[Rfam]
RNA: UnaL2 LINE 3' element
RNA sequence: AUUGUCUUCAAUUGUAAGUUGCUUUGGAUAAAAGCAUCUGCUAAAUAACUAAAU
Numbered sequence: 001a002u003u004g005u006c007u008u009c010a011a012u013u014g015u016a017a018g019u020u021g022c023u024u025u026g027g028a029u030a031a032a033a034g035c036a037u038c039u040g041c042u043a044a045a046u047a048a049c050u051a052a053a054u
Stems, first nucleotide, its partner, number of pairs: 013043001014041003020036006